[Rfam]
RNA sequence: CAGCAUGUUUCCAGGGGCUGUGGCUGGUUGGAGCCAUGGGAUCUCCAACCACAUGCAAGAACAACCUGGAGAAACUUGGACAACUCGGUUCAGCCUAAUACCUGCAGCUGCCACUGCCUUUCCUGUAAUA
Numbered sequence: 001c002a003g004c005a006u007g008u009u010u011c012c013a014g015g016g017g018c019u020g021u022g023g024c025u026g027g028u029u030g031g032a033g034c035c036a037u038g039g040g041a042u043c044u045c046c047a048a049c050c051a052c053a054u055g056c057a058a059g060a061a062c063a064a065c066c067u068g069g070a071g072a073a074a075c076u077u078g079g080a081c082a083a084c085u086c087g088g089u090u091c092a093g094c095c096u097a098a099u100a101c102c103u104g105c106a107g108c109u110g111c112c113a114c115u116g117c118c119u120u121u122c123c124u125g126u127a128a129u130a
Base pairs, nucleotide, nucleotide: 011039012038016035017034018033019032021030022029068123069122070121071120072119084110086104087103088102
A member of the RNA family "Small nucleolar RNA SNORA44" from Molossus molossus, 130 nucleotides long.
Gene Ontology terms of the family: nucleolus and RNA processing.
ACA44 is a member of the H/ACA class of snoRNA that guide the sites of modification of uridines to pseudouridines.
Its Rfam clan is "SNORA44 clan".
NCBI's taxonomy places the organism under Eukaryota, Chordata, Vertebrata, Theria, Molossus.
By type it is an H/ACA-box small nucleolar RNA.